[Rfam]
RNA sequence: AGCCUAAACACCCCUAAAAAAGUGCAUGGCAAUAAUAAAACCUUAGGAGAAGUAAGCUCUCUAUCAGAGCAUCUCCUAAGGUUGUGCGUCGAAAGGUGUGCAGGUGGUGAAAGCCAUC
Numbered sequence: 001a002g003c004c005u006a007a008a009c010a011c012c013c014c015u016a017a018a019a020a021a022g023u024g025c026a027u028g029g030c031a032a033u034a035a036u037a038a039a040a041c042c043u044u045a046g047g048a049g050a051a052g053u054a055a056g057c058u059c060u061c062u063a064u065c066a067g068a069g070c071a072u073c074u075c076c077u078a079a080g081g082u083u084g085u086g087c088g089u090c091g092a093a094a095g096g097u098g099u100g101c102a103g104g105u106g107g108u109g110a111a112a113g114c115c116a117u118c
Stems, first nucleotide, its partner, number of pairs: 002030003009024003015021001041081010056070005083102008103118006
Shown here is a 118-nucleotide RNA, a member of the family "LOOT RNA". Rfam's curators put it in the seed alignment. The family's RNA type in Rfam is small RNA.